Rfam assigns this 87-nucleotide sequence from Hibiscus syriacus to the family "small nucleolar RNA snoR114". The base pairs follow the family's consensus structure, which was predicted with RNAalifold. Taxonomically the source falls in Hibiscus (Eukaryota, Streptophyta, Tracheophyta, Gunneridae). Rfam links the family to the GO terms nucleolus and RNA processing. It scores 59 bits against the family's covariance model.

RNA sequence: AAGCCAUGAUGACGAUUGCGCUCAAGUGAAGUCAGGGUUUUUUAUAAUCGUCUGAUUACAAGACGACGCAGUAGCGCUUCUUAGCUU
Numbered sequence: 001a002a003g004c005c006a007u008g009a010u011g012a013c014g015a016u017u018g019c020g021c022u023c024a025a026g027u028g029a030a031g032u033c034a035g036g037g038u039u040u041u042u043u044a045u046a047a048u049c050g051u052c053u054g055a056u057u058a059c060a061a062g063a064c065g066a067c068g069c070a071g072u073a074g075c076g077c078u079u080c081u082u083a084g085c086u087u
Base pairs, nucleotide, nucleotide: 001087002086003085004084